RNA sequence: UGGCCCAUCGGGGCAAUGGAUACCUGCUUAAA
Numbered sequence: 001u002g003g004c005c006c007a008u009c010g011g012g013g014c015a016a017u018g019g020a021u022a023c024c025u026g027c028u029u030a031a032a
Base pairs, nucleotide, nucleotide: 003014004013005012006011017026018025019024